A member of the RNA family "Guanidine-II riboswitch aptamer (mini-ykkC)" from Acinetobacter sp. CIP 102637, 47 nucleotides long. The literature on the family includes a 2007 paper in Nucleic Acids Res by Weinberg et al., "Identification of 22 candidate structured RNAs in bacteria using the CMfinder comparative genomics pipeline". From the family's description: Simpler in structure and has fewer highly conserved nucleotide positions than the ykkC-yxkD leader. Despite this each of its two stem-loop structures directly bind free guanidine.
RNA sequence: CUGGGAGGACGACCUCUCCGUAAAGGAAUCACGUUGGGACGACCCAA
Dot-bracket structure: (.((((((....)))))).).............(((((....)))))
Taxonomically the source falls in Acinetobacter (Bacteria, Pseudomonadota, Moraxellales, Moraxellaceae).